Shown here is an 85-nucleotide RNA from Heliothis virescens, a member of the family "Small nucleolar RNA snR60/Z15/Z230/Z193/J17". It scores 54 bits against the family's covariance model. The literature on the family includes a 1999 paper in Science by Lowe and Eddy, "A computational screen for methylation guide snoRNAs in yeast". NCBI's taxonomy places the organism under Eukaryota, Metazoa, Lepidoptera, Glossata, Heliothis.
RNA sequence: UCUUUUAACAUGAUGACUUCAUAGUUCAUCUGAACGCUUUGAUGUACACACUUUUUAUGUCUUUCGCUCCUAUCUGAUUAUAAAU
Numbered sequence: 001u002c003u004u005u006u007a008a009c010a011u012g013a014u015g016a017c018u019u020c021a022u023a024g025u026u027c028a029u030c031u032g033a034a035c036g037c038u039u040u041g042a043u044g045u046a047c048a049c050a051c052u053u054u055u056u057a058u059g060u061c062u063u064u065c066g067c068u069c070c071u072a073u074c075u076g077a078u079u080a081u082a083a084a085u
Base pairs, nucleotide, nucleotide: 004082006080007079008078